[Rfam]
RNA sequence: GACCUCUUAGCUCAGUGGUAGAGCGUGAGAUUCCAGCUUUUCUUGGAACCUCCUCAAGGUCGUCCGUUCAAUCCGGGCAGGGGUCA
Numbered sequence: 001g002a003c004c005u006c007u008u009a010g011c012u013c014a015g016u017g018g019u020a021g022a023g024c025g026u027g028a029g030a031u032u033c034c035a036g037c038u039u040u041u042c043u044u045g046g047a048a049c050c051u052c053c054u055c056a057a058g059g060u061c062g063u064c065c066g067u068u069c070a071a072u073c074c075g076g077g078c079a080g081g082g083g084u085c086a
Base pairs, nucleotide, nucleotide: 001085002084003083004082005081006080007079010024011023012022013021026056027055028054029053062078063077064076065075066074
RNA: tRNA
Organism: Rhizoctonia solani